[Rfam]
The family of this 195-nucleotide RNA sequence is "Group II catalytic intron D1-D4-3". For this family Rfam cites "The ins and outs of group II introns" (Bonen and Vogel, Trends Genet, 2001).
RNA sequence: UCCAUCGUGAGGUGGAAUCUGAAGGAAGCUGGAUAUGGGGAACAUACUAACCCAUGGGCAAAUCUCUGGUCUGACGAACAGAAAUCACAUCAGGCUAUGCAUGAGGGUAAGACUGCGAUACAAGUUGAAGCCCUAUAACUACACGGAAUCAUGUAUGGUAAAUGUGGCAGAUGGAUGGAGAGAAAGAAACGUGUG
Numbered sequence: 001u002c003c004a005u006c007g008u009g010a011g012g013u014g015g016a017a018u019c020u021g022a023a024g025g026a027a028g029c030u031g032g033a034u035a036u037g038g039g040g041a042a043c044a045u046a047c048u049a050a051c052c053c054a055u056g057g058g059c060a061a062a063u064c065u066c067u068g069g070u071c072u073g074a075c076g077a078a079c080a081g082a083a084a085u086c087a088c089a090u091c092a093g094g095c096u097a098u099g100c101a102u103g104a105g106g107g108u109a110a111g112a113c114u115g116c117g118a119u120a121c122a123a124g125u126u127g128a129a130g131c132c133c134u135a136u137a138a139c140u141a142c143a144c145g146g147a148a149u150c151a152u153g154u155a156u157g158g159u160a161a162a163u164g165u166g167g168c169a170g171a172u173g174g175a176u177g178g179a180g181a182g183a184a185a186g187a188a189a190c191g192u193g194u195g
Stems, first nucleotide, its partner, number of pairs: 001016006051195001053193003059186001063181006069172005085167005094159003098155007105133004111126004
Gene Ontology term of the family: Group II intron splicing.
Rfam's curators write: Group II introns are found in rRNA, tRNA and mRNA of organelles in fungi, plants and protists, and also in mRNA in bacteria.